Shown here is a 63-nucleotide sequence from Sphingobacterium thalpophilum, a member of the family "Fluoride riboswitch aptamer (crcB RNA motif)". Taxonomically the source falls in Sphingobacterium (Bacteria, Pseudomonadati, Bacteroidota, Sphingobacteriia).
RNA sequence: CCACAUACUGGCAAUGAUGUCUGCCCUGAACCGCCCUAAGAAGCUGAUGACGUCUACUUUAUA
Dot-bracket structure: .........[[[[..((((((]]]].......((........))....)))))).........

It scores 46 bits against the family's covariance model.